The record is an 85-nucleotide RNA from Sporolactobacillus putidus, which matches "c-di-GMP-I riboswitch aptamer" in Rfam.
RNA sequence: UUUGCGAAAUGGCACACUUAUCGAAAGAUAAGGUCGCAAAGCCACGGGCCUAAGGCGGGAUCGCUAGGGCAGCCGGGUUGCCGAA
Numbered sequence: 001u002u003u004g005c006g007a008a009a010u011g012g013c014a015c016a017c018u019u020a021u022c023g024a025a026a027g028a029u030a031a032g033g034u035c036g037c038a039a040a041g042c043c044a045c046g047g048g049c050c051u052a053a054g055g056c057g058g059g060a061u062c063g064c065u066a067g068g069g070c071a072g073c074c075g076g077g078u079u080g081c082c083g084a085a
Stems, first nucleotide, its partner, number of pairs: 012037002017032006040079004045075003048070003055064003
The base pairs follow the family's consensus structure, which is taken from published work.